[Rfam]
Nucleotides: 061
Stems, first nucleotide, its partner, number of pairs: 012058001013025004026044002029042003045057003
Number, partner (000 for none) and nucleotide at each position: 001000a002000u003000a004000a005000u006000g007000a008000u009000a010000c011000a012058c013025c014024c015023g016022u017000a018000u019000g020000a021000c022016a023015c024014g025013g026044c027043u028000a029042c030041u031040c032000a033000u034000a035000a036000g037000a038000a039000u040031g041030a042029g043027a044026g045057g046056g047055g048000u049000g050000c051000a052000a053000g054000u055047c056046c057045c058012g059000u060000g061000g
pemK RNA: a 61-nucleotide sequence from Lachnospiraceae bacterium 1_4_56FAA. The base pairs follow the family's consensus structure, which is taken from published work. It scores 44 bits against the family's covariance model. The source organism's lineage runs through Bacteria, Bacillati, Clostridia, Lachnospirales and Lachnospiraceae.